[Rfam]
RNA sequence: AAUUCUCUUCGUAGGAACAAAGAAAAGCAAAUUUAUUCUAUACUCGAUAAGUAACAAUAUGCAAUGGGG
Numbered sequence: 001a002a003u004u005c006u007c008u009u010c011g012u013a014g015g016a017a018c019a020a021a022g023a024a025a026a027g028c029a030a031a032u033u034u035a036u037u038c039u040a041u042a043c044u045c046g047a048u049a050a051g052u053a054a055c056a057a058u059a060u061g062c063a064a065u066g067g068g069g
Stems, first nucleotide, its partner, number of pairs: 003022002006019001008017003043068003051060003

A member of the RNA family "Plastid-clpP 5UTR RNA" from Coffea arabica, 69 nucleotides long.
Rfam's curators write: Plastid clpP is a non-coding RNA (ncRNA) recognised in plastids. It was found in the prime untranslated region (5UTR) of a protease complex subunit (clpP) in plastids, suggesting a posible cis-regulatory function.
By type it is a cis-regulatory element.
For this family Rfam cites "Retrograde signaling in plants: A critical review focusing on the GUN pathway and beyond" (Richter et al., Plant Commun, 2023).
The organism belongs to Coffea, within Eukaryota.
The base pairs follow the family's consensus structure, which was predicted with LocARNA.
The match comes from Rfam's covariance-model search (85 bits).